[Rfam]
RNA sequence: GAAUAUCGCAAGAGCCUCUCCUCCUCCCGAGGCUUGAGCGAUCAAAGGCUGACACUCCUCCUCCCGGUCAGCCUUUACCUAACGACACCCGCCGCUCCUCCUCCCGCGGCGGGUGUUGUUU
Numbered sequence: 001g002a003a004u005a006u007c008g009c010a011a012g013a014g015c016c017u018c019u020c021c022u023c024c025u026c027c028c029g030a031g032g033c034u035u036g037a038g039c040g041a042u043c044a045a046a047g048g049c050u051g052a053c054a055c056u057c058c059u060c061c062u063c064c065c066g067g068u069c070a071g072c073c074u075u076u077a078c079c080u081a082a083c084g085a086c087a088c089c090c091g092c093c094g095c096u097c098c099u100c101c102u103c104c105c106g107c108g109g110c111g112g113g114u115g116u117u118g119u120u121u
Stems, first nucleotide, its partner, number of pairs: 007040003012035006044076010085116011